A member of the RNA family "Glycine riboswitch aptamer" from Abyssicoccus albus, 95 nucleotides long. The match comes from Rfam's covariance-model search (66 bits). The source organism's lineage runs through Bacteria, Bacillati, Bacilli, Abyssicoccaceae and Abyssicoccus.

[Rfam]
RNA sequence: AAACAAAGUAUUAGAGAGAAUAAGUGAAAGUAACUUAUCGCCGAAGGUGCAACUUUAACAAGGAAACUCUCAGGCAAAAGUAUAAUACUUUGAUA
Numbered sequence: 001a002a003a004c005a006a007a008g009u010a011u012u013a014g015a016g017a018g019a020a021u022a023a024g025u026g027a028a029a030g031u032a033a034c035u036u037a038u039c040g041c042c043g044a045a046g047g048u049g050c051a052a053c054u055u056u057a058a059c060a061a062g063g064a065a066a067c068u069c070u071c072a073g074g075c076a077a078a079a080g081u082a083u084a085a086u087a088c089u090u091u092g093a094u095a
Base pairs, nucleotide, nucleotide: 006090007089008088009087010086011085012084013083020038021037022036023035024034025033040075041074042073043071044070047069049067053062054061